[Rfam]
Annotation: Shown here is a 114-nucleotide RNA sequence from Pseudescherichia vulneris, a member of the family "Magnesium riboswitch aptamer (Magnesium responsive RNA element)". Pairs were carried over by alignment from the consensus structure, which is taken from published work. The organism belongs to Pseudescherichia vulneris, within Bacteria. Rfam describes the family as follows. The Magnesium sensor RNA element is a cis-regulatory element that regulates the expression of the magnesium transporter protein MgtA. It is located in the 5' UTR of this gene. The element adopts different structures depending on the presence or absence of Mg2+, this has the affect of regulating whether transcription reads through the mgtA coding region or stops within the 5' UTR.

RNA sequence: CUUACCGGAGGCGACAUGGAUCCCGAUCCCACCCCUCUCCCUCGAUGGAGAACCCCUUUUUUCCGGUAAGCCUCACGUUAUUGCCUUACCGGAUGCGUAGGGCAGUAGCGUCCU
Numbered sequence: 001c002u003u004a005c006c007g008g009a010g011g012c013g014a015c016a017u018g019g020a021u022c023c024c025g026a027u028c029c030c031a032c033c034c035c036u037c038u039c040c041c042u043c044g045a046u047g048g049a050g051a052a053c054c055c056c057u058u059u060u061u062u063c064c065g066g067u068a069a070g071c072c073u074c075a076c077g078u079u080a081u082u083g084c085c086u087u088a089c090c091g092g093a094u095g096c097g098u099a100g101g102g103c104a105g106u107a108g109c110g111u112c113c114u
Stems, first nucleotide, its partner, number of pairs: 001070011017031003036051005080106010
Dot-bracket structure: (((((((((((.....(((.........)))....(((((......)))))........))))))))))).........((((((((((.......))))))))))........